A member of the RNA family "Small nucleolar RNA U105B" from Sus scrofa, 80 nucleotides long. The family is grouped with related families in Rfam's "SNORD105 clan". Pairs were carried over by alignment from the consensus structure, which was predicted with WAR. The family has 13 seed sequences and 132 matches in Rfam 15.1. The literature on the family includes a 2006 paper in Nucleic Acids Res by Yang et al., "snoSeeker: an advanced computational package for screening of guide and orphan snoRNA genes in the human genome".
RNA sequence: UUCUGUGCGGCUGAUGACAGCACUGCUGCUGAGACUCUGUGAUUGCUUAGUCUCAAAGUAAACGCCCUGACGCACUGUGG
Dot-bracket structure: ....(((((((((....)))).......(((((............)))))....................))))).....